[Rfam]
RNA sequence: CCAUCUGCAUCGGGAGAAUCUGGGGAAACCCAGUGCCGAAGGAGCAACCGCCCCGGUAAACUCUCAGGCCAACGGACCGAUGCAGAGAA
Numbered sequence: 001c002c003a004u005c006u007g008c009a010u011c012g013g014g015a016g017a018a019u020c021u022g023g024g025g026a027a028a029c030c031c032a033g034u035g036c037c038g039a040a041g042g043a044g045c046a047a048c049c050g051c052c053c054c055g056g057u058a059a060a061c062u063c064u065c066a067g068g069c070c071a072a073c074g075g076a077c078c079g080a081u082g083c084a085g086a087g088a089a
Base pairs, nucleotide, nucleotide: 006084007083008082009081010080011079012078013077020033021032022031023030035069036068037067038065039064042063043062044061048056049055
Dot-bracket structure: .....((((((((......((((......)))).(((((..(((...((.....))....))))).))).......)))))))).....
Shown here is an 89-nucleotide RNA from Actibacterium naphthalenivorans, a member of the family "Glycine riboswitch aptamer". NCBI's taxonomy places the organism under Bacteria, Pseudomonadati, Pseudomonadota, Alphaproteobacteria, Actibacterium. Gene Ontology term of the family: glycine biosynthetic process.